[Rfam]
A member of the RNA family "Group I catalytic intron" from Ophiocordyceps camponoti-saundersi, 404 nucleotides long. Group I catalytic introns are large self-splicing ribozymes. Taxonomically the source falls in Ophiocordyceps (Eukaryota, Fungi, sordariomyceta, Hypocreales). The family has 12 seed sequences and 5,602 matches in Rfam 15.1.
RNA sequence: GUGAUAAGGUUGUAUGGCACAGCCUUUUUGUAGAAGUGAACCUUCUGCUAUAAAUCGACAAAUUGCGGGAAUACCCUAAAGCAAUUAUAACCAAGUAGGAGUAGAGUAAUACGUCCUAUGGCUUAGGUAAUGACUCAAGGUAAGGUAAAAUCAUAAUUGAUCUUCGAAAUUUUUAUUUUUAAGUUUUCAGGGCUCCGCGACUUCUUAUUUUAUAUAUAUAAAAUAAGCCUUAAAAGCUCGCAGUAAAAAAAAAUCGAAGUAAAAAGGGUUAUCUGCAGCCAAGCACCGACUAUUGUAAAUCAAGGUAUGGUGUGCAGUUCAUCGACUAAAUGUUGGUUGGCUUAUAAUUAUAGUUAUAUAAUUAUUUGCUUAAGAUAUAGUCAGGCCUCGCUCGAAAGGGUGCA
Numbered sequence: 001g002u003g004a005u006a007a008g009g010u011u012g013u014a015u016g017g018c019a020c021a022g023c024c025u026u027u028u029u030g031u032a033g034a035a036g037u038g039a040a041c042c043u044u045c046u047g048c049u050a051u052a053a054a055u056c057g058a059c060a061a062a063u064u065g066c067g068g069g070a071a072u073a074c075c076c077u078a079a080a081g082c083a084a085u086u087a088u089a090a091c092c093a094a095g096u097a098g099g100a101g102u103a104g105a106g107u108a109a110u111a112c113g114u115c116c117u118a119u120g121g122c123u124u125a126g127g128u129a130a131u132g133a134c135u136c137a138a139g140g141u142a143a144g145g146u147a148a149a150a151u152c153a154u155a156a157u158u159g160a161u162c163u164u165c166g167a168a169a170u171u172u173u174u175a176u177u178u179u180u181a182a183g184u185u186u187u188c189a190g191g192g193c194u195c196c197g198c199g200a201c202u203u204c205u206u207a208u209u210u211u212a213u214a215u216a217u218a219u220a221a222a223a224u225a226a227g228c229c230u231u232a233a234a235a236g237c238u239c240g241c242a243g244u245a246a247a248a249a250a251a252a253a254u255c256g257a258a259g260u261a262a263a264a265a266g267g268g269u270u271a272u273c274u275g276c277a278g279c280c281a282a283g284c285a286c287c288g289a290c291u292a293u294u295g296u297a298a299a300u301c302a303a304g305g306u307a308u309g310g311u312g313u314g315c316a317g318u319u320c321a322u323c324g325a326c327u328a329a330a331u332g333u334u335g336g337u338u339g340g341c342u343u344a345u346a347a348u349u350a351u352a353g354u355u356a357u358a359u360a361a362u363u364a365u366u367u368g369c370u371u372a373a374g375a376u377a378u379a380g381u382c383a384g385g386c387c388u389c390g391c392u393c394g395a396a397a398g399g400g401u402g403c404a
Stems, first nucleotide, its partner, number of pairs: 053338005059332002064277006074268004278318002283313004291305001293303001322383001324382005340369002344365005389402005